[Rfam]
RNA sequence: CUUGGGGAGGGAGGGGCGUUCCUCAGCCCAGAUUGCAAGAGGGUGCAGGCCAGGCCGAGGGACCCCACUGGUGCAUG
Numbered sequence: 001c002u003u004g005g006g007g008a009g010g011g012a013g014g015g016g017c018g019u020u021c022c023u024c025a026g027c028c029c030a031g032a033u034u035g036c037a038a039g040a041g042g043g044u045g046c047a048g049g050c051c052a053g054g055c056c057g058a059g060g061g062a063c064c065c066c067a068c069u070g071g072u073g074c075a076u077g
Stems, first nucleotide, its partner, number of pairs: 003075002006072001012069002015066002018063007026055003031050001033048005
RNA: mir-9193 microRNA precursor family